[Rfam]
RNA sequence: UUCGGUGGAUGAUCGCGCCGGGCAGAUGGGGAGGCGCAAGCCGCAUGACCCGGAUGGCCCGGUGAGGAACUUCCUGGCACCGCUUCCGGUGAAGUCCGAGUCUGCCCCAGGCAGACGCAUCAGGACCCGUAGCCGGAAGAAAGUUGGCGCAGAGCGCAAGCUCUGGCGGCGCGAGCCGACGAUGGGGAAGGCGGUCUCGCCUGGUGCGAGUCGCUUGUACCUGUAACGAGCUAGAGAGACGCAGGUCCCCCGGCGACGGGGGAGUGGCACGGGCAAUCUCCGCCACGGUGCAAGUCCAAGUAGGCGCCUUUGAGCGCGGGUAGGACGCAGUCCCAGGAGUAAUCCGGGACCACGGUCUGGUCGGGCCGUGAGAUAAAUGAUCAUCACGCCCGCCGAAAGGCGGGCGGACAGAACCAGGGGUAUAGCC
Number, nucleotide and partner (000 for none) at each position: 001u000002u000003c000004g427005g426006u425007g423008g385009a384010u383011g382012a381013u380014c379015g000016c064017g063018c062019c061020g060021g059022g058023c057024a000025g000026a000027u000028g000029g000030g000031g000032a000033g000034g000035c000036g000037c000038a000039a000040g000041c000042c000043g000044c000045a000046u000047g000048a000049c000050c000051c000052g000053g000054a000055u000056g000057g023058c022059c021060c020061g019062g018063u017064g016065a000066g000067g000068a000069a421070c420071u419072u000073c418074c417075u416076g415077g414078c290079a289080c288081c287082g286083c139084u138085u137086c136087c135088g134089g133090u132091g000092a000093a000094g000095u000096c000097c000098g000099a000100g000101u000102c000103u000104g000105c000106c000107c000108c000109a000110g000111g000112c000113a000114g000115a000116c000117g000118c000119a000120u000121c000122a000123g000124g000125a000126c000127c000128c000129g000130u000131a000132g090133c089134c088135g087136g086137a085138a084139g083140a000141a000142a000143g000144u000145u285146g284147g283148c282149g281150c165151a164152g163153a162154g161155c160156g000157c000158a000159a000160g155161c154162u153163c152164u151165g150166g180167c178168g177169g176170c175171g000172c000173g000174a000175g170176c169177c168178g167179a000180c166181g280182a279183u000184g222185g221186g220187g000188a000189a000190g000191g214192c213193g212194g211195u000196c000197u000198c208199g207200c206201c000202u000203g000204g000205u000206g200207c199208g198209a000210g000211u194212c193213g192214c191215u000216u000217g000218u000219a000220c186221c185222u184223g000224u000225a000226a000227c000228g278229a277230g274231c273232u272233a000234g000235a000236g000237a000238g000239a000240c000241g000242c000243a000244g000245g000246u263247c262248c261249c260250c259251c258252g257253g000254c000255g000256a000257c252258g251259g250260g249261g248262g247263a246264g000265u000266g000267g000268c000269a000270c000271g000272g232273g231274c230275a000276a000277u229278c228279u182280c181281c149282g148283c147284c146285a145286c082287g081288g080289u079290g078291c000292a000293a000294g326295u325296c324297c000298a000299a000300g000301u000302a000303g000304g000305c000306g000307c000308c000309u000310u000311u000312g000313a000314g000315c000316g000317c000318g000319g000320g000321u000322a000323g000324g296325a295326c294327g000328c000329a000330g350331u349332c348333c347334c346335a000336g344337g000338a000339g000340u000341a000342a000343u000344c336345c000346g334347g333348g332349a331350c330351c370352a369353c368354g367355g366356u365357c364358u363359g000360g000361u000362c000363g358364g357365g356366c355367c354368g353369u352370g351371a000372g000373a000374u000375a000376a000377a000378u000379g014380a013381u012382c011383a010384u009385c008386a000387c406388g405389c404390c403391c402392g401393c400394c399395g000396a000397a000398a000399g394400g393401c392402g391403g390404g389405c388406g387407g000408a000409c000410a000411g000412a000413a000414c077415c076416a075417g074418g073419g071420g070421u069422a000423u007424a000425g006426c005427c004
The record is a 427-nucleotide sequence from Symbiobacterium thermophilum, which matches "Bacterial RNase P class B" in Rfam. The organism belongs to Symbiobacterium thermophilum, within Bacteria. On this family, see Frank and Pace, Annu Rev Biochem 1998: "Ribonuclease P: unity and diversity in a tRNA processing ribozyme".